[Rfam]
RNA sequence: UCCCUCCCAGACCAACGGAAACCCGUCCUGUGCUCACGCGAGCGGGAAGGCGAGACGAAGCCCCAACACGGGGCUAGGCGGUAACGGCAGACCUGGGCGCCUUCGAGUCUCGCG
Numbered sequence: 001u002c003c004c005u006c007c008c009a010g011a012c013c014a015a016c017g018g019a020a021a022c023c024c025g026u027c028c029u030g031u032g033c034u035c036a037c038g039c040g041a042g043c044g045g046g047a048a049g050g051c052g053a054g055a056c057g058a059a060g061c062c063c064c065a066a067c068a069c070g071g072g073g074c075u076a077g078g079c080g081g082u083a084a085c086g087g088c089a090g091a092c093c094u095g096g097g098c099g100c101c102u103u104c105g106a107g108u109c110u111c112g113c114g
Base pairs, nucleotide, nucleotide: 006097007096008095009094010093025092026091028090029089030088031087032043033042034041035040050113051112052111053110054109055108056107059075060074061073062072063071064070076102077101078100079099080098
RNA: EGFOA RNA